About this RNA:
This 205-nucleotide RNA sequence from Faecalibacterium gallinarum belongs to the Rfam family "6S / SsrS RNA". A search with the family's covariance model found it, with a score of 71 bits. By type it is a non-coding RNA gene. Lineage of the source: Bacteria > Bacillati > Bacillota > Clostridia > Faecalibacterium. E. coli 6S RNA was the first non coding RNA to be sequenced, but its function was unknown until recently.
RNA sequence: AGAAUCCUGCCCGGCUCGACUUGUUGCGGUUUAUAUGAUCCUACUAAUCAAUCAUUGGGAGCUUGGCGUCCGCCGGCAGAUUGCAGACCUCCCCGUUAGGGCUCGACCCUAGAGGCUCGAUGAGGAAGCGCGAAACCGGCGGCAGGGCACCCACCUGUCCGUAAGGGUAGGUUUGAUUAGCCGCAGACGACCGGGCGGGAUUUUC
Numbered sequence: 001a002g003a004a005u006c007c008u009g010c011c012c013g014g015c016u017c018g019a020c021u022u023g024u025u026g027c028g029g030u031u032u033a034u035a036u037g038a039u040c041c042u043a044c045u046a047a048u049c050a051a052u053c054a055u056u057g058g059g060a061g062c063u064u065g066g067c068g069u070c071c072g073c074c075g076g077c078a079g080a081u082u083g084c085a086g087a088c089c090u091c092c093c094c095g096u097u098a099g100g101g102c103u104c105g106a107c108c109c110u111a112g113a114g115g116c117u118c119g120a121u122g123a124g125g126a127a128g129c130g131c132g133a134a135a136c137c138g139g140c141g142g143c144a145g146g147g148c149a150c151c152c153a154c155c156u157g158u159c160c161g162u163a164a165g166g167g168u169a170g171g172u173u174u175g176a177u178u179a180g181c182c183g184c185a186g187a188c189g190a191c192c193g194g195g196c197g198g199g200a201u202u203u204u205c
Base pairs, nucleotide, nucleotide: 002203003202004201005200006199007198008197009196010195011194012193013192014191017189018188036175037174038173040171041170057152058151059150061148062147063146064145066143071141072140073139074138075137076136083129084128088125089124090123091122